Overview
Shown here is a 227-nucleotide RNA from Clupea harengus, a member of the family "Small nucleolar RNA SNORA53". A search with the family's covariance model found it, with a score of 109 bits. By type it is an H/ACA-box small nucleolar RNA. The family has 28 seed sequences and 1,090 matches in Rfam 15.1. Gene Ontology terms of the family: nucleolus and RNA processing.

RNA sequence: AACACGUUCCUUAGAUCCACCUCUGGGAAGCGCUCCUCUUCAGGCCUGCUUACUCUGUGUGGGUACUGCAGUGUCUGCGAGGAGACUUCCAGCAGCUUUUCGGCUGUACAGUUGGAGGUGCUUGAGUCAUUGGCGUGUGAGAGCAGUCUACCUGCACCUCUGGUCUAAGAGCUGCACUGACCCCUUGUUGGAAUCCAUCAGUGCAGCACGACUGGAUGGCGGACAAA
Numbered sequence: 001a002a003c004a005c006g007u008u009c010c011u012u013a014g015a016u017c018c019a020c021c022u023c024u025g026g027g028a029a030g031c032g033c034u035c036c037u038c039u040u041c042a043g044g045c046c047u048g049c050u051u052a053c054u055c056u057g058u059g060u061g062g063g064u065a066c067u068g069c070a071g072u073g074u075c076u077g078c079g080a081g082g083a084g085a086c087u088u089c090c091a092g093c094a095g096c097u098u099u100u101c102g103g104c105u106g107u108a109c110a111g112u113u114g115g116a117g118g119u120g121c122u123u124g125a126g127u128c129a130u131u132g133g134c135g136u137g138u139g140a141g142a143g144c145a146g147u148c149u150a151c152c153u154g155c156a157c158c159u160c161u162g163g164u165c166u167a168a169g170a171g172c173u174g175c176a177c178u179g180a181c182c183c184c185u186u187g188u189u190g191g192a193a194u195c196c197a198u199c200a201g202u203g204c205a206g207c208a209c210g211a212c213u214g215g216a217u218g219g220c221g222g223a224c225a226a227a
Stems, first nucleotide, its partner, number of pairs: 002138007010126005018120008026090005034083004041077003046071004050065001052064004092107006152222004157218001160215001162213004171207007179199002